[Rfam]
RNA sequence: GGUUUUCAUUGGUGUAAAUUCAAUCAACAGAAUUUAAGAUGAGAAGUAAUUCUCCAUUGGUAGCAAUUAUUAUCCAUUAAGUGGAGGAAAUCUCAU
Numbered sequence: 001g002g003u004u005u006u007c008a009u010u011g012g013u014g015u016a017a018a019u020u021c022a023a024u025c026a027a028c029a030g031a032a033u034u035u036a037a038g039a040u041g042a043g044a045a046g047u048a049a050u051u052c053u054c055c056a057u058u059g060g061u062a063g064c065a066a067u068u069a070u071u072a073u074c075c076a077u078u079a080a081g082u083g084g085a086g087g088a089a090a091u092c093u094c095a096u
Stems, first nucleotide, its partner, number of pairs: 009023004052086004056077002059074005
The record is a 96-nucleotide RNA from Handroanthus impetiginosus, which matches "Plastid-rps12 3UTR RNA" in Rfam. The literature on the family includes a 2023 paper in Plant Commun by Richter et al., "Retrograde signaling in plants: A critical review focusing on the GUN pathway and beyond". The organism belongs to Handroanthus, within Eukaryota. About the family: Plastid rpl20 is a non-coding RNA (ncRNA) recognised in plastids. It was found in the three prime untranslated region (3UTR) of rps12 gene, its 3UTR location sugest a role in transcript maduration. The family has 1,299 seed sequences and 1,710 matches in Rfam 15.1.